Description: The record is a 59-nucleotide RNA sequence from Pacificitalea manganoxidans, which matches "terC RNA" in Rfam. By type it is a cis-regulatory element. The base pairs follow the family's consensus structure, which is taken from published work.
[Rfam]
Nucleotides: 059
Base pairs, nucleotide, nucleotide: 006053007052009051010050011049012048022043023042024041025040026039027038028037029036
Number, partner (000 for none) and nucleotide at each position: 001000u002000c003000c004000g005000g006053u007052g008000a009051c010050c011049g012048g013000g014000c015000c016000c017000c018000u019000c020000u021000g022043g023042c024041g025040g026039a027038c028037g029036u030000g031000g032000c033000g034000g035000c036029g037028c038027g039026u040025u041024c042023g043022u044000g045000a046000u047000g048012u049011c050010g051009g052007c053006a054000u055000c056000g057000c058000a059000a